[Rfam]
RNA sequence: CCAAGGGCUUGCGCCCCGGGCUAUUACCCGACGCCCCUUCGGGGCG
Numbered sequence: 001c002c003a004a005g006g007g008c009u010u011g012c013g014c015c016c017c018g019g020g021c022u023a024u025u026a027c028c029c030g031a032c033g034c035c036c037c038u039u040c041g042g043g044g045c046g
Base pairs, nucleotide, nucleotide: 001020002019005016006015007014008013033045034044035043036042037041
Record summary
A member of the RNA family "Acido-Lenti-1 RNA" from Frigoriglobus tundricola, 46 nucleotides long. Taxonomically the source falls in Frigoriglobus (Bacteria, Planctomycetia, Gemmatales, Gemmataceae). It scores 39 bits against the family's covariance model. The family has 87 seed sequences and 2,607 matches in Rfam 15.1.